[Rfam]
RNA sequence: UGGUGCCCAAUGUGUGGGGCCCUGAUACAGGGUGCUUAUCAUGAGGAAGAAGAUCAGGUGGCCAGCAUUGUAUACAGAAAUUUCUUCAAACGUCUAGGGAGCCUGCUGUGGACAAAGCAAAGGUGAGCGAUAGAGUCUGAACAUGGGACAAACAUUAAGCCCACAUGAGGUCUAGGUGAAACAAUUAAAAGAGGCAUUAAAGGUACAAGAAGUAAAGGUAAAAUCCAAUGACUUGUUUAAAUUUUUUGAUUUUGUUUGUGAUCUUUGCCCUG
Numbered sequence: 001u002g003g004u005g006c007c008c009a010a011u012g013u014g015u016g017g018g019g020c021c022c023u024g025a026u027a028c029a030g031g032g033u034g035c036u037u038a039u040c041a042u043g044a045g046g047a048a049g050a051a052g053a054u055c056a057g058g059u060g061g062c063c064a065g066c067a068u069u070g071u072a073u074a075c076a077g078a079a080a081u082u083u084c085u086u087c088a089a090a091c092g093u094c095u096a097g098g099g100a101g102c103c104u105g106c107u108g109u110g111g112a113c114a115a116a117g118c119a120a121a122g123g124u125g126a127g128c129g130a131u132a133g134a135g136u137c138u139g140a141a142c143a144u145g146g147g148a149c150a151a152a153c154a155u156u157a158a159g160c161c162c163a164c165a166u167g168a169g170g171u172c173u174a175g176g177u178g179a180a181a182c183a184a185u186u187a188a189a190a191g192a193g194g195c196a197u198u199a200a201a202g203g204u205a206c207a208a209g210a211a212g213u214a215a216a217g218g219u220a221a222a223a224u225c226c227a228a229u230g231a232c233u234u235g236u237u238u239a240a241a242u243u244u245u246u247u248g249a250u251u252u253u254g255u256u257u258g259u260g261a262u263c264u265u266u267g268c269c270c271u272g
Stems, first nucleotide, its partner, number of pairs: 006034001007032002012028003039053002042050001082125001084123001085121002094110001097107002131151001133149001136147004156199003159195003206248008216234004221229001257272002260269001262267001
RNA: Mason-Pfizer monkey virus packaging signal